[Rfam]
RNA: tRNA
RNA sequence: GCCCCCGUAGCUCAGUGGAUAGAGCGAUCCCCUCCUAAGGGAUAGGUCACACGUUCGAUCCGUGUCGGGGGCG
Dot-bracket structure: (((((((..((((........)))).(((((.......))))).....(((((.......)))))))))))).